[Rfam]
This 107-nucleotide RNA sequence from Caenorhabditis elegans belongs to the Rfam family "SL2 RNA".
RNA sequence: GGUUUUAACCCAGUUAACCAAGGUUAGCAUGGAAUUCGAUCAUUCGCAAGAAUGUGUCGAAACACAAAAUUUUGGACAAGCUUCCUCGGGGUAUCCGUGGGAGCAAA
Numbered sequence: 001g002g003u004u005u006u007a008a009c010c011c012a013g014u015u016a017a018c019c020a021a022g023g024u025u026a027g028c029a030u031g032g033a034a035u036u037c038g039a040u041c042a043u044u045c046g047c048a049a050g051a052a053u054g055u056g057u058c059g060a061a062a063c064a065c066a067a068a069a070u071u072u073u074g075g076a077c078a079a080g081c082u083u084c085c086u087c088g089g090g091g092u093a094u095c096c097g098u099g100g101g102a103g104c105a106a107a
Stems, first nucleotide, its partner, number of pairs: 007036002009032002013028002016025003037059004041054005082105001084103001086101002089098001090096002
Record summary
Its family is annotated with mRNA trans splicing, via spliceosome in the Gene Ontology. This family represents SL2 RNA. SL2 RNA is involved in trans splicing in lower eukaryotes. Trans-splicing is a form of RNA processing. Taxonomically the source falls in Caenorhabditis (Eukaryota, Nematoda, Rhabditida, Rhabditoidea). It is annotated as a non-coding RNA gene. Clan: SL clan.